[Rfam]
RNA sequence: GGCUGGUCCGAUGGUAGUAGGUUAUCAUAACUUAUUAACAUUAGUGUCACUAAAGUGGUAUACAAUCCUCUACUGAUAAAUUUGACUGGCUUUAA
Numbered sequence: 001g002g003c004u005g006g007u008c009c010g011a012u013g014g015u016a017g018u019a020g021g022u023u024a025u026c027a028u029a030a031c032u033u034a035u036u037a038a039c040a041u042u043a044g045u046g047u048c049a050c051u052a053a054a055g056u057g058g059u060a061u062a063c064a065a066u067c068c069u070c071u072a073c074u075g076a077u078a079a080a081u082u083u084g085a086c087u088g089g090c091u092u093u094a095a
Base pairs, nucleotide, nucleotide: 001091002090003089004088005087006086007085008084010083011082015078016074017073018072019071020070021069027059028058030056031055

A member of the RNA family "Y RNA" from Carlito syrichta, 95 nucleotides long. It scores 59 bits against the family's covariance model. The family has 104 seed sequences and 26,986 matches in Rfam 15.1. Lineage of the source: Eukaryota > Eumetazoa > Chordata > Tarsiidae > Carlito.